[Rfam]
RNA sequence: AAAUGAGAUAGAGGUUGCGACCAACAUCAGUAACUUAAACGAGCAGUCCACGCUGUGAUGACUUUAAGUGAAAGGGGCGGUCGCCGAAACGCUGGCACAGUGGGUGCGUCAGUUGUUGGGGUAGACGCGAAAAGCGGCUACACUGUCGUCGAAAAUCGACGGGGCGCUAUCCAAACA
Numbered sequence: 001a002a003a004u005g006a007g008a009u010a011g012a013g014g015u016u017g018c019g020a021c022c023a024a025c026a027u028c029a030g031u032a033a034c035u036u037a038a039a040c041g042a043g044c045a046g047u048c049c050a051c052g053c054u055g056u057g058a059u060g061a062c063u064u065u066a067a068g069u070g071a072a073a074g075g076g077g078c079g080g081u082c083g084c085c086g087a088a089a090c091g092c093u094g095g096c097a098c099a100g101u102g103g104g105u106g107c108g109u110c111a112g113u114u115g116u117u118g119g120g121g122u123a124g125a126c127g128c129g130a131a132a133a134g135c136g137g138c139u140a141c142a143c144u145g146u147c148g149u150c151g152a153a154a155a156u157c158g159a160c161g162g163g164g165c166g167c168u169a170u171c172c173a174a175a176c177a
Stems, first nucleotide, its partner, number of pairs: 007171005017084006025076001033069007088117004092112005098106002118144002121141004126136003146162007
RNA: Lysine riboswitch aptamer
Organism: Lacticaseibacillus manihotivorans